[Rfam]
RNA sequence: UACGCAAAGCAUAUGAUGAGAAAACACUGGAACUGACUCUCUGUAUGAAGUGCAUUCAGUCCAGCACUGAGCUUUGUGGU
Numbered sequence: 001u002a003c004g005c006a007a008a009g010c011a012u013a014u015g016a017u018g019a020g021a022a023a024a025c026a027c028u029g030g031a032a033c034u035g036a037c038u039c040u041c042u043g044u045a046u047g048a049a050g051u052g053c054a055u056u057c058a059g060u061c062c063a064g065c066a067c068u069g070a071g072c073u074u075u076g077u078g079g080u
Base pairs, nucleotide, nucleotide: 003078004077005076006075007074008073009072010071

A member of the RNA family "Small nucleolar RNA SNORD69" from Alca torda, 80 nucleotides long. Rfam's curators write: snoRNA HBII-210 belongs to the C/D family of snoRNAs. It is the human orthologue of the mouse MBII-210 and is predicted to guide the 2'O-ribose methylation of large 28S rRNA on residue G4464. On this family, see Huttenhofer et al., EMBO J 2001: "RNomics: an experimental approach that identifies 201 candidates for novel, small, non-messenger RNAs in mouse". The family has 11 seed sequences and 524 matches in Rfam 15.1. Pairs were carried over by alignment from the consensus structure. It is annotated as a C/D-box small nucleolar RNA.